[Rfam]
RNA: Y RNA
RNA sequence: GGCUGGUCCGAAGGUAGUGACUUAUCUCAGUUGAUUGUUCACCGUCAGUUACAGAUUAAACUCCUGUUCUACACUUUCCCCCCUUCUUACUACUGUACUUGACUAGUACAC
Numbered sequence: 001g002g003c004u005g006g007u008c009c010g011a012a013g014g015u016a017g018u019g020a021c022u023u024a025u026c027u028c029a030g031u032u033g034a035u036u037g038u039u040c041a042c043c044g045u046c047a048g049u050u051a052c053a054g055a056u057u058a059a060a061c062u063c064c065u066g067u068u069c070u071a072c073a074c075u076u077u078c079c080c081c082c083c084u085u086c087u088u089a090c091u092a093c094u095g096u097a098c099u100u101g102a103c104u105a106g107u108a109c110a111c
Stems, first nucleotide, its partner, number of pairs: 002107007010100002014096002016091005047070002
Dot-bracket structure: .(((((((.((..(((((((..........................((....................))................)))))...))..)))))))))....